[Rfam]
RNA: mir-9193 microRNA precursor family
Organism: Cnephaeus nilssonii
RNA sequence: CGGGAGGGUAGGGGUCCCUCAGCCUGGAUUGUGAGAGGGUGCAGGCCAGGCUGAGGGAUCCCCGCACAUCGG
Numbered sequence: 001c002g003g004g005a006g007g008g009u010a011g012g013g014g015u016c017c018c019u020c021a022g023c024c025u026g027g028a029u030u031g032u033g034a035g036a037g038g039g040u041g042c043a044g045g046c047c048a049g050g051c052u053g054a055g056g057g058a059u060c061c062c063c064g065c066a067c068a069u070c071g072g
Base pairs, nucleotide, nucleotide: 003070008065009064011062012061013060014059015058016057017056018055019054020053021052022051023050024049026047027046029044030043031042032041033040